A member of the RNA family "pemK RNA" from Clostridium sp. CAG:1024, 95 nucleotides long. Rfam classes the family as a cis-regulatory element. A search with the family's covariance model found it, with a score of 42 bits.

RNA sequence: GAUACUUCUGUCCAGCCACAGUUCGAGCGUGAACAAACCGUCGCAAGCAAUGGGGGCAGCUCUGAGAGAACCUCGGAGGGGAUGAAAUCCCAUGA
Numbered sequence: 001g002a003u004a005c006u007u008c009u010g011u012c013c014a015g016c017c018a019c020a021g022u023u024c025g026a027g028c029g030u031g032a033a034c035a036a037a038c039c040g041u042c043g044c045a046a047g048c049a050a051u052g053g054g055g056g057c058a059g060c061u062c063u064g065a066g067a068g069a070a071c072c073u074c075g076g077a078g079g080g081g082a083u084g085a086a087a088u089c090c091c092a093u094g095a
Stems, first nucleotide, its partner, number of pairs: 007092001008059006060078003064074003079091003
Lineage of the source: Bacteria > Bacillota > Eubacteriales > Clostridiaceae > Clostridium.